A member of the RNA family "Group II catalytic intron D1-D4-7" from Candidatus Kuenenia stuttgartensis, 141 nucleotides long. Rfam describes the family as follows. Group II introns are found in rRNA, tRNA and mRNA of organelles in fungi, plants and protists, and also in mRNA in bacteria. NCBI's taxonomy places the organism under Bacteria, Planctomycetota, Candidatus Brocadiales, Candidatus Brocadiaceae, Candidatus Kuenenia. Gene Ontology term of the family: Group II intron splicing. For this family Rfam cites "The ins and outs of group II introns" (Bonen and Vogel, Trends Genet, 2001).
[Rfam]
RNA sequence: CUAAGCAUGUUCCUGCUUAUUCCUACGUGAGCGUGCUACCAUUGCGCUGACGACGGGGUGCGAAGCCUCACGGACAACGUACCGAAUUGGGUCGAAAUGGCGACAGGCAGACCCCUCCGGAAAACCUAUCCGGUUAAGGGC
Numbered sequence: 001c002u003a004a005g006c007a008u009g010u011u012c013c014u015g016c017u018u019a020u021u022c023c024u025a026c027g028u029g030a031g032c033g034u035g036c037u038a039c040c041a042u043u044g045c046g047c048u049g050a051c052g053a054c055g056g057g058g059u060g061c062g063a064a065g066c067c068u069c070a071c072g073g074a075c076a077a078c079g080u081a082c083c084g085a086a087u088u089g090g091g092u093c094g095a096a097a098u099g100g101c102g103a104c105a106g107g108c109a110g111a112c113c114c115c116u117c118c119g120g121a122a123a124a125c126c127u128a129u130c131c132g133g134u135u136a137a138g139g140g141c
Stems, first nucleotide, its partner, number of pairs: 002019006027071005032062006039056002042053003089114004098105002117133005